[Rfam]
RNA sequence: GGGUCCGCAUUUCACCCAGGCGCCGCCAUCCGUCACAGGACACGCUAAACCUGCCA
Numbered sequence: 001g002g003g004u005c006c007g008c009a010u011u012u013c014a015c016c017c018a019g020g021c022g023c024c025g026c027c028a029u030c031c032g033u034c035a036c037a038g039g040a041c042a043c044g045c046u047a048a049a050c051c052u053g054c055c056a
Stems, first nucleotide, its partner, number of pairs: 001017004029040003